Record summary: Bacterial RNase P class B: a 371-nucleotide RNA from Loigolactobacillus coryniformis.
[Rfam]
RNA sequence: AACUUCGGGUGAUCGCGGUCUACUUUUGUAGGCUGAGGAAAGUCCAUGCCCGCACAAGCUGCGAUGCUUGUAGUGUUCGUGCUUAGCCCAAUAAGCUAAGGUACUGGGUAACCAGUAACGGCGGAGAACGUUGCUAAGGAGCAAUCUAUGCAAUUAAUAUCCUGAAAAGUGCCACAGUGACGAUACAGUUUGGAAACGAACUGUUUGGAACGGGUAAACCCCGCGAGCGAGUAACCCAAACUUAUGGUAGGGGCGCUCCAUGUAUGGAAAUGAACGACGCAUGGAGACAGAUCUAGUGUCUGUAGAUAGAUGAUUGCCCUCACUGGUUGUGUUCCUGAGCCAAUCAGUGAGACAAAACAUGGCUUACAGAG
Numbered sequence: 001a002a003c004u005u006c007g008g009g010u011g012a013u014c015g016c017g018g019u020c021u022a023c024u025u026u027u028g029u030a031g032g033c034u035g036a037g038g039a040a041a042g043u044c045c046a047u048g049c050c051c052g053c054a055c056a057a058g059c060u061g062c063g064a065u066g067c068u069u070g071u072a073g074u075g076u077u078c079g080u081g082c083u084u085a086g087c088c089c090a091a092u093a094a095g096c097u098a099a100g101g102u103a104c105u106g107g108g109u110a111a112c113c114a115g116u117a118a119c120g121g122c123g124g125a126g127a128a129c130g131u132u133g134c135u136a137a138g139g140a141g142c143a144a145u146c147u148a149u150g151c152a153a154u155u156a157a158u159a160u161c162c163u164g165a166a167a168a169g170u171g172c173c174a175c176a177g178u179g180a181c182g183a184u185a186c187a188g189u190u191u192g193g194a195a196a197c198g199a200a201c202u203g204u205u206u207g208g209a210a211c212g213g214g215u216a217a218a219c220c221c222c223g224c225g226a227g228c229g230a231g232u233a234a235c236c237c238a239a240a241c242u243u244a245u246g247g248u249a250g251g252g253g254c255g256c257u258c259c260a261u262g263u264a265u266g267g268a269a270a271u272g273a274a275c276g277a278c279g280c281a282u283g284g285a286g287a288c289a290g291a292u293c294u295a296g297u298g299u300c301u302g303u304a305g306a307u308a309g310a311u312g313a314u315u316g317c318c319c320u321c322a323c324u325g326g327u328u329g330u331g332u333u334c335c336u337g338a339g340c341c342a343a344u345c346a347g348u349g350a351g352a353c354a355a356a357a358c359a360u361g362g363c364u365u366a367c368a369g370a371g
Stems, first nucleotide, its partner, number of pairs: 004371003007367001008318007016035006040365003044362005049231001051229003054071006077226005082100006101119001102117006120221002123162003131153004138147003169219002171215003185204008235252003256286007287303006320350009

Annotation:
A search with the family's covariance model found it, with a score of 318 bits. Gene Ontology terms of the family: ribonuclease P activity, tRNA processing and dimeric ribonuclease P complex. The source organism's lineage runs through Bacteria, Lactobacillales, Loigolactobacillus, Loigolactobacillus coryniformis and Loigolactobacillus coryniformis subsp. coryniformis. By type it is a ribozyme. From the family's description: Ribonuclease P (RNase P) is a ubiquitous endoribonuclease, found in archaea, bacteria and eukarya as well as chloroplasts and mitochondria. Its best characterised activity is the generation of mature 5'-ends of tRNAs by cleaving the 5'-leader elements of precursor-tRNAs.